RNA sequence: CUGCUCUCGCUUCAACAGUGUUUGGAUAGAGCAG
Numbered sequence: 001c002u003g004c005u006c007u008c009g010c011u012u013c014a015a016c017a018g019u020g021u022u023u024g025g026a027u028a029g030a031g032c033a034g
Base pairs, nucleotide, nucleotide: 001034002033003032004031005030006029007028009027011026012025013024014023015022016020